Rfam assigns this 142-nucleotide sequence from Streptomyces buecherae to the family "Streptomyces sRNA scr5239". Pairs were carried over by alignment from the consensus structure, which is taken from published work.
[Rfam]
RNA sequence: CCUCCACUCUCCCCGCACAGGAGAGUGGACCGAGGCUCACGGCGCUCUCUGCCCUGACCGCGCCGAAGCCUCAGGUCGGCCGAACCGGCCGAUGCAACUCCGGGCUGCGGUGCCGGGCGGGUUGAGGGUCCCGCCCUGGCGC
Number, nucleotide and partner (000 for none) at each position: 001c000002c000003u029004c028005c027006a026007c000008u024009c023010u022011c021012c020013c000014c000015g000016c000017a000018c000019a000020g012021g011022a010023g009024a008025g000026u006027g005028g004029a003030c000031c000032g072033a071034g070035g069036c000037u068038c000039a000040c065041g064042g063043c000044g061045c060046u057047c056048u000049c000050u000051g000052c000053c000054c000055u000056g047057a046058c000059c000060g045061c044062g000063c042064c041065g040066a000067a000068g037069c035070c034071u033072c032073a000074g000075g000076u092077c091078g090079g089080c088081c087082g086083a000084a000085c000086c082087g081088g080089c079090c078091g077092a076093u000094g000095c000096a000097a111098c110099u109100c000101c107102g106103g000104g000105c000106u102107g101108c000109g099110g098111u097112g000113c000114c000115g136116g135117g134118c133119g132120g131121g130122u000123u000124g000125a000126g000127g000128g000129u000130c121131c120132c119133g118134c117135c116136c115137u000138g000139g000140c000141g000142c000

The literature on the family includes a 2012 paper in Microbiology by Vockenhuber and Suess, "Streptomyces coelicolor sRNA scr5239 inhibits agarase expression by direct base pairing to the dagA coding region". Its family is annotated with mRNA binding and negative regulation of translation in the Gene Ontology. Rfam classes the family as a small RNA.